[Rfam]
RNA sequence: CUUACAUAGUUCUUUGGCAUUCUGUCCACCUCCAAUUAGCUUCAUGAUCUUCUAUUUUUUUUUUAGAAAAAAAAUGGAGGUGGGCAUACUGUCAACAGAUUUGUGUUGG
Numbered sequence: 001c002u003u004a005c006a007u008a009g010u011u012c013u014u015u016g017g018c019a020u021u022c023u024g025u026c027c028a029c030c031u032c033c034a035a036u037u038a039g040c041u042u043c044a045u046g047a048u049c050u051u052c053u054a055u056u057u058u059u060u061u062u063u064u065a066g067a068a069a070a071a072a073a074a075u076g077g078a079g080g081u082g083g084g085c086a087u088a089c090u091g092u093c094a095a096c097a098g099a100u101u102u103g104u105g106u107u108g109g
Stems, first nucleotide, its partner, number of pairs: 011099001014095006023086011
MIR394 microRNA precursor family: a 109-nucleotide RNA from Solanum commersonii. The base pairs follow the family's consensus structure, which was predicted with WAR. A search with the family's covariance model found it, with a score of 82 bits. A reference for the family is Lu et al. (2006), "MicroRNAs and other small RNAs enriched in the Arabidopsis RNA-dependent RNA polymerase-2 mutant", Genome Res.